[Rfam]
RNA sequence: UGCAAGUAUUUUACGAUUAAGAAGCAAUUGCCUCUUGUACAAGUUAUGCAUUAACCG
Numbered sequence: 001u002g003c004a005a006g007u008a009u010u011u012u013a014c015g016a017u018u019a020a021g022a023a024g025c026a027a028u029u030g031c032c033u034c035u036u037g038u039a040c041a042a043g044u045u046a047u048g049c050a051u052u053a054a055c056c057g
Stems, first nucleotide, its partner, number of pairs: 018037005024031002